[Rfam]
RNA sequence: AGACUAAUGAUGAUUCUAUACUUAAUGUUACUGACCAGUGGGUAGCUGAAGAUACUAGCAUGUUGCAUGAGUCU
Numbered sequence: 001a002g003a004c005u006a007a008u009g010a011u012g013a014u015u016c017u018a019u020a021c022u023u024a025a026u027g028u029u030a031c032u033g034a035c036c037a038g039u040g041g042g043u044a045g046c047u048g049a050a051g052a053u054a055c056u057a058g059c060a061u062g063u064u065g066c067a068u069g070a071g072u073c074u
Stems, first nucleotide, its partner, number of pairs: 001074003043065004
RNA: Small nucleolar RNA R43